[Rfam]
RNA sequence: AUAGAGACAAGGCAAAACCAUUGAAAAGUGGUGACGCAAAACUAUAGGGACUAAAUUGAAUGCAUCUAUUCAGUAUGUCUGCCAGUUGCCUCC
Numbered sequence: 001a002u003a004g005a006g007a008c009a010a011g012g013c014a015a016a017a018c019c020a021u022u023g024a025a026a027a028g029u030g031g032u033g034a035c036g037c038a039a040a041a042c043u044a045u046a047g048g049g050a051c052u053a054a055a056u057u058g059a060a061u062g063c064a065u066c067u068a069u070u071c072a073g074u075a076u077g078u079c080u081g082c083c084a085g086u087u088g089c090c091u092c093c
Base pairs, nucleotide, nucleotide: 012037013036017032018031019030020029021028022027040087041086042085043084047083048082049079050078051077056073057072058071059070060069061068062067
Dot-bracket structure: ...........((...((((((....))))))...))..((((...(((((....(((((((....)))))))...)))..))))))......
Overview:
The family of this 93-nucleotide RNA from Ammoniphilus sp. CFH 90114 is "c-di-GMP-I riboswitch aptamer". The match comes from Rfam's covariance-model search (68 bits). NCBI's taxonomy places the organism under Bacteria, Bacillati, Bacilli, Caryophanales, Ammoniphilus.